[Rfam]
RNA: SAM riboswitch aptamer (S box leader)
RNA sequence: UCCUUAUCAAGAAAGGCGGAGGGACUGGCCCGAUGAAGCCUUAGCAACCGGAUGUAAAAAUCACGGUGCUAAUUCCAGCAGUUAAUUCUGAAAGAUAAGUC
Numbered sequence: 001u002c003c004u005u006a007u008c009a010a011g012a013a014a015g016g017c018g019g020a021g022g023g024a025c026u027g028g029c030c031c032g033a034u035g036a037a038g039c040c041u042u043a044g045c046a047a048c049c050g051g052a053u054g055u056a057a058a059a060a061u062c063a064c065g066g067u068g069c070u071a072a073u074u075c076c077a078g079c080a081g082u083u084a085a086u087u088c089u090g091a092a093a094g095a096u097a098a099g100u101c
Base pairs, nucleotide, nucleotide: 003099004098005097006096007095008094013042014041015040016039017038021031022030023029025078026077027076028075043070044069045068046067048066049065050062051061053059074093079090080089081088